The family of this 511-nucleotide part of an RNA from Candidatus Nanosalina sp. J07AB43 is "Archaeal small subunit ribosomal RNA". It is one of the family's seed sequences. On this family, see Yusupov et al., Science 2001: "Crystal structure of the ribosome at 5.5 A resolution". The source organism's lineage runs through Archaea, Methanobacteriati, Methanobacteriota, Candidatus Nanohaloarchaea and Candidatus Nanosalina. Rfam links the family to the GO terms structural constituent of ribosome and ribosome. The family has 86 seed sequences and 709 matches in Rfam 15.1.
[Rfam]
RNA sequence: AUUCUGGUUGAUCCUGCCAGAGACUACCGCUAUCGGAGUCCGAUUUAGCCAUGCUAGUCCACCGAGUCUUUGACUUGGGGCAUAUAGCUGAGUAACACGUGGCUAACCUGCCCUGUGGAUGGGUAUAACCUCGCUAACGUGAGGCUAAUACCCAAUAUCAGAUGAGGAUGGAAGUAAUCUUCAUCUGUGAAACGUUCUGACGCCACAGGAUGGGGCCGCGGCUGAUUAGGUUGUUGGUGAGGUAACGGCUCACCAAGCCGAUAAUCAGUAGCAGGGGUGAGAGCCCGAGCUGUCAGUCGGCAUCUGAGACAAGAUGCCGGACCCUACGGGGUGCAGCAGGCACGAAACCUUCACAAUGCACGCAAGUGCGAUGGGGGGACUCCGAGUGCAGUCUUCCAAAACGGAAGGCCGCUUUUCUGCACUUUAAGCAGGUGCCGAAACAAGGGGUGGGCAAGACGGCUGCCAGCCGCCGCGGUAAUAGCCGCACCCCGAGUGGUAGUCAUUGUUAUUG
Numbered sequence: 001a002u003u004c005u006g007g008u009u010g011a012u013c014c015u016g017c018c019a020g021a022g023a024c025u026a027c028c029g030c031u032a033u034c035g036g037a038g039u040c041c042g043a044u045u046u047a048g049c050c051a052u053g054c055u056a057g058u059c060c061a062c063c064g065a066g067u068c069u070u071u072g073a074c075u076u077g078g079g080g081c082a083u084a085u086a087g088c089u090g091a092g093u094a095a096c097a098c099g100u101g102g103c104u105a106a107c108c109u110g111c112c113c114u115g116u117g118g119a120u121g122g123g124u125a126u127a128a129c130c131u132c133g134c135u136a137a138c139g140u141g142a143g144g145c146u147a148a149u150a151c152c153c154a155a156u157a158u159c160a161g162a163u164g165a166g167g168a169u170g171g172a173a174g175u176a177a178u179c180u181u182c183a184u185c186u187g188u189g190a191a192a193c194g195u196u197c198u199g200a201c202g203c204c205a206c207a208g209g210a211u212g213g214g215g216c217c218g219c220g221g222c223u224g225a226u227u228a229g230g231u232u233g234u235u236g237g238u239g240a241g242g243u244a245a246c247g248g249c250u251c252a253c254c255a256a257g258c259c260g261a262u263a264a265u266c267a268g269u270a271g272c273a274g275g276g277g278u279g280a281g282a283g284c285c286c287g288a289g290c291u292g293u294c295a296g297u298c299g300g301c302a303u304c305u306g307a308g309a310c311a312a313g314a315u316g317c318c319g320g321a322c323c324c325u326a327c328g329g330g331g332u333g334c335a336g337c338a339g340g341c342a343c344g345a346a347a348c349c350u351u352c353a354c355a356a357u358g359c360a361c362g363c364a365a366g367u368g369c370g371a372u373g374g375g376g377g378g379a380c381u382c383c384g385a386g387u388g389c390a391g392u393c394u395u396c397c398a399a400a401a402c403g404g405a406a407g408g409c410c411g412c413u414u415u416u417c418u419g420c421a422c423u424u425u426a427a428g429c430a431g432g433u434g435c436c437g438a439a440a441c442a443a444g445g446g447g448u449g450g451g452c453a454a455g456a457c458g459g460c461u462g463c464c465a466g467c468c469g470c471c472g473c474g475g476u477a478a479u480a481g482c483c484g485c486a487c488c489c490c491g492a493g494u495g496g497u498a499g500u501c502a503u504u505g506u507u508a509u510u511g
Base pairs, nucleotide, nucleotide: 004020005019006018007017008016022501023500024499025498026497027496028495029494030493031492033385034384035383036382037381038380039379040378041377042343048341049340050339052338053337054336057081058080059079062078063077064076065075066074067073068072088296089295090294098220099219100218101217102216103215104214107213108212112209113208114207115206116205117204118203120154121153122152123151129144130143131142132141133140134139159187160186161185162184163183164182165181166180167179168178194201195200222268223267224266229259230258231257234256235255236254237253238252239251240250241249271293272292273291274290275286276285277284278283298319299318300317301316302315303314321332322331323330324329349375351374352373353372357370358369359368360367361366388412389411391409392408393407394406395405396404397403417437419435420434421433422432423431444490445489446488447487448486449485457484458483459482460481466473467472